[Rfam]
RNA sequence: UCCAGUGGUAGUCAGCUGUCCAGAGCAGUACAGUGCCUGUGAUAGUGUUACACUGCUGGGAGAUAAAGAGCAGUCGUUUCUUCUGGCUGCUGUUGUCACCGUUCUGGAGACAGCAGAUGCCAAGAAGUGAUGUUGUGCUUCCCUGAGAGCGCACCAAAGAUUUGCUUUCCCUCUUUAGUGCUAGUCUGGAAGCAUACAUA
Numbered sequence: 001u002c003c004a005g006u007g008g009u010a011g012u013c014a015g016c017u018g019u020c021c022a023g024a025g026c027a028g029u030a031c032a033g034u035g036c037c038u039g040u041g042a043u044a045g046u047g048u049u050a051c052a053c054u055g056c057u058g059g060g061a062g063a064u065a066a067a068g069a070g071c072a073g074u075c076g077u078u079u080c081u082u083c084u085g086g087c088u089g090c091u092g093u094u095g096u097c098a099c100c101g102u103u104c105u106g107g108a109g110a111c112a113g114c115a116g117a118u119g120c121c122a123a124g125a126a127g128u129g130a131u132g133u134u135g136u137g138c139u140u141c142c143c144u145g146a147g148a149g150c151g152c153a154c155c156a157a158a159g160a161u162u163u164g165c166u167u168u169c170c171c172u173c174u175u176u177a178g179u180g181c182u183a184g185u186c187u188g189g190a191a192g193c194a195u196a197c198a199u200a
Stems, first nucleotide, its partner, number of pairs: 001060009011051002015046006021039003070133003074130006084122004090116003094112004099107002135195008151181003156176005
RNA: Small nucleolar RNA SNORA74
Organism: Hemiprocne comata